[Rfam]
This 67-nucleotide RNA from Cnephaeus nilssonii belongs to the Rfam family "mir-9256 microRNA precursor family". Its family is annotated with miRNA-mediated post-transcriptional gene silencing and RISC complex in the Gene Ontology.

RNA sequence: ACACACACUGAGUGGCCAGGUUAUUAUGCAUUCAGAGGUCAUAAUAAUCUGGCCACUCAGUGUAUGU
Number, nucleotide and partner (000 for none) at each position: 001a000002c000003a000004c000005a063006c062007a061008c060009u059010g058011a057012g056013u055014g054015g053016c052017c051018a000019g049020g048021u047022u046023a045024u044025u043026a042027u041028g040029c000030a000031u000032u000033c000034a000035g000036a000037g000038g000039u000040c028041a027042u026043a025044a024045u023046a022047a021048u020049c019050u000051g017052g016053c015054c014055a013056c012057u011058c010059a009060g008061u007062g006063u005064a000065u000066g000067u000
Overview
Lineage of the source: Eukaryota > Opisthokonta > Bilateria > Chiroptera > Cnephaeus. Pairs were carried over by alignment from the consensus structure, which was predicted with RNAalifold.